[Rfam]
RNA sequence: CUCUUAUAACGAGAAGCGGAGGGAACUGGCCCUAGGAAACUUCGGCAACCAUUGGAUAUCUUUCAAACGGUGCCAAAUCCAGCAGACAUUAUCAUCUGAUCUAUAAGGG
Dot-bracket structure: ((((((((....((((....(((..[[[[))).......))))((((.((.((((.......))))..))))))....]]]]((((........))))...))))))))